[Rfam]
RNA: Streptococcus sRNA SpF39
RNA sequence: AAAUCCCCUACCAAUAAAAGUAAAUAUUUUAAAAAGCAUCUCAUUUUGUGAUAAAAAUUGAAUAUGUAAAUUUUAGACGAUAGAACGUAAUAAUUCUGUCGUUUUUUUG
Numbered sequence: 001a002a003a004u005c006c007c008c009u010a011c012c013a014a015u016a017a018a019a020g021u022a023a024a025u026a027u028u029u030u031a032a033a034a035a036g037c038a039u040c041u042c043a044u045u046u047u048g049u050g051a052u053a054a055a056a057a058u059u060g061a062a063u064a065u066g067u068a069a070a071u072u073u074u075a076g077a078c079g080a081u082a083g084a085a086c087g088u089a090a091u092a093a094u095u096c097u098g099u100c101g102u103u104u105u106u107u108u109g
Stems, first nucleotide, its partner, number of pairs: 004053001007050001009048002016046003024041001026039002029036002075104010